[Rfam]
RNA: mir-190 microRNA precursor family
RNA sequence: AGCGCUGUGUGAUAUGUUUGAUAUUCGGUUGUUCUCCUACAUAUCAAGUCAACUAAAUAUCAAACAUAUUCUUACAGAGCC
Numbered sequence: 001a002g003c004g005c006u007g008u009g010u011g012a013u014a015u016g017u018u019u020g021a022u023a024u025u026c027g028g029u030u031g032u033u034c035u036c037c038u039a040c041a042u043a044u045c046a047a048g049u050c051a052a053c054u055a056a057a058u059a060u061c062a063a064a065c066a067u068a069u070u071c072u073u074a075c076a077g078a079g080c081c
Stems, first nucleotide, its partner, number of pairs: 005077005011070015027054005